[Rfam]
This 502-nucleotide part of an RNA from Rhizopus delemar belongs to the Rfam family "Eukaryotic large subunit ribosomal RNA".
RNA sequence: CCUGCCGAAGUUUCCCUCAGGAUAGCAGAAACUUAUACGCAGUUUUAUGUGGUAAAGCGAAUGAUUGGGGUCACGGGGGGCUAAACGCCCUUCAACCACUCUCAAACUUUAAAUAUGUAAGACGACCUGUUUGCUUAAUUGAAGCAGGUCAUUGAAUGCAGAGUUUCUAGUGGGCCAUUUUUGGUAAGCAGAACUGGCGAUGCGGGAUGAACCGAACGCAGAGUUAAGGUGCCGGAAUACACGCUCAUCAGACACCACAAAAGGUGUUAGUUCAUCUAGACAGCAGGACGGUGGCCAUGGAAGUCGGAAUCCGCUAAGGAGUGUGUAACAACUCACCUGCCGAAUGAACUAGCCCUGAAAAUGGAUGGCGCUUAAGCGUGUUACCCAUACUCUGCCGUUAUUGUAAAAGCGAAGCAAUAACGAGUAGGCAGGCGUGGAGGUUUUUAUAAACUGUUAAGAAGCUCUUGGUGUGAACCGGAGUGAAACAGCCUCUAGUGCAGAU
Numbered sequence: 001c002c003u004g005c006c007g008a009a010g011u012u013u014c015c016c017u018c019a020g021g022a023u024a025g026c027a028g029a030a031a032c033u034u035a036u037a038c039g040c041a042g043u044u045u046u047a048u049g050u051g052g053u054a055a056a057g058c059g060a061a062u063g064a065u066u067g068g069g070g071u072c073a074c075g076g077g078g079g080g081c082u083a084a085a086c087g088c089c090c091u092u093c094a095a096c097c098a099c100u101c102u103c104a105a106a107c108u109u110u111a112a113a114u115a116u117g118u119a120a121g122a123c124g125a126c127c128u129g130u131u132u133g134c135u136u137a138a139u140u141g142a143a144g145c146a147g148g149u150c151a152u153u154g155a156a157u158g159c160a161g162a163g164u165u166u167c168u169a170g171u172g173g174g175c176c177a178u179u180u181u182u183g184g185u186a187a188g189c190a191g192a193a194c195u196g197g198c199g200a201u202g203c204g205g206g207a208u209g210a211a212c213c214g215a216a217c218g219c220a221g222a223g224u225u226a227a228g229g230u231g232c233c234g235g236a237a238u239a240c241a242c243g244c245u246c247a248u249c250a251g252a253c254a255c256c257a258c259a260a261a262a263g264g265u266g267u268u269a270g271u272u273c274a275u276c277u278a279g280a281c282a283g284c285a286g287g288a289c290g291g292u293g294g295c296c297a298u299g300g301a302a303g304u305c306g307g308a309a310u311c312c313g314c315u316a317a318g319g320a321g322u323g324u325g326u327a328a329c330a331a332c333u334c335a336c337c338u339g340c341c342g343a344a345u346g347a348a349c350u351a352g353c354c355c356u357g358a359a360a361a362u363g364g365a366u367g368g369c370g371c372u373u374a375a376g377c378g379u380g381u382u383a384c385c386c387a388u389a390c391u392c393u394g395c396c397g398u399u400a401u402u403g404u405a406a407a408a409g410c411g412a413a414g415c416a417a418u419a420a421c422g423a424g425u426a427g428g429c430a431g432g433c434g435u436g437g438a439g440g441u442u443u444u445u446a447u448a449a450a451c452u453g454u455u456a457a458g459a460a461g462c463u464c465u466u467g468g469u470g471u472g473a474a475c476c477g478g479a480g481u482g483a484a485a486c487a488g489c490c491u492c493u494a495g496u497g498c499a500g501a502u
Base pairs, nucleotide, nucleotide: 001432002431003430004429005428006427011024013022014021015020027168028167029166030165031164032163033162043122044121045120046119047118048117049116050115055110056108057107062104063103064102067099069097070096071095075093076092077091078090079089081087124150125149126148127147128146129145130144131143132142174198175197176196177195179193180192181191182190183189203214204213205212218395219394220393221392222391224389228385229384230383237382239381242378243377244376262356263355264354266353267352268351269350270349271348272347273346274345275344283340284339285338286337287336289313290312291311295307296306314318319334323332324331396422397421398420399419400418401417402416403415404414433497435494436493437492438491439490440489441488442487444485461481462480467476468475469474